[Rfam]
The family of this 84-nucleotide sequence from Neobacillus cucumis is "c-di-GMP-I-GGC riboswitch aptamer". Pairs were carried over by alignment from the consensus structure, which is taken from published work. The source organism's lineage runs through Bacteria, Bacillati, Bacilli, Caryophanales and Neobacillus.
RNA sequence: AUAGUAAAAGGCAAACCAUUCGAAAGAUUGGGACGCAAAGCUACAGGUCUAAGGUUUAUUACUAUGACGGCUGAGUUGCCUAAA
Number, nucleotide and partner (000 for none) at each position: 001a000002u000003a081004g080005u000006a000007a000008a000009a000010g000011g036012c035013a000014a000015a000016c031017c030018a029019u000020u027021c026022g000023a000024a000025a000026g021027a020028u000029u018030g017031g016032g000033a000034c070035g012036c011037a000038a000039a077040g076041c075042u074043a000044c073045a072046g071047g068048u067049c066050u000051a000052a000053g000054g000055u000056u000057u000058a000059u000060u000061a000062c000063u000064a000065u000066g049067a048068c047069g000070g034071c046072u045073g044074a042075g041076u040077u039078g000079c000080c004081u003082a000083a000084a000